[Rfam]
RNA sequence: GGGUAAACCGGGUAAACCGGGUAAACCGGGUAAACCGGGUAAACCGGGUAAACCGGGUAAACCGGGUAAACCGGGUAAACCGGGUAAACCCGGGUAAACCCGGGUAACCCGGGUAACCCGGGUAACCCGGGUAACCCGGGUAACCCGGGUAACCCGGGUAACCCGGGU
Numbered sequence: 001g002g003g004u005a006a007a008c009c010g011g012g013u014a015a016a017c018c019g020g021g022u023a024a025a026c027c028g029g030g031u032a033a034a035c036c037g038g039g040u041a042a043a044c045c046g047g048g049u050a051a052a053c054c055g056g057g058u059a060a061a062c063c064g065g066g067u068a069a070a071c072c073g074g075g076u077a078a079a080c081c082g083g084g085u086a087a088a089c090c091c092g093g094g095u096a097a098a099c100c101c102g103g104g105u106a107a108c109c110c111g112g113g114u115a116a117c118c119c120g121g122g123u124a125a126c127c128c129g130g131g132u133a134a135c136c137c138g139g140g141u142a143a144c145c146c147g148g149g150u151a152a153c154c155c156g157g158g159u160a161a162c163c164c165g166g167g168u
Base pairs, nucleotide, nucleotide: 001045002044004042007040008039009038011036012035013034017030018029020027021026054082055081056080058078060076062074063073064072102146103145104144108140109139110138111137112136115132152168153167154166155165156164157163158162
This 168-nucleotide RNA sequence from Nicotiana attenuata belongs to the Rfam family "Collinsella-1 RNA". By type it is a small RNA. The family has 6 seed sequences and 21 matches in Rfam 15.1. The match comes from Rfam's covariance-model search (36 bits). The organism belongs to Nicotiana, within Eukaryota.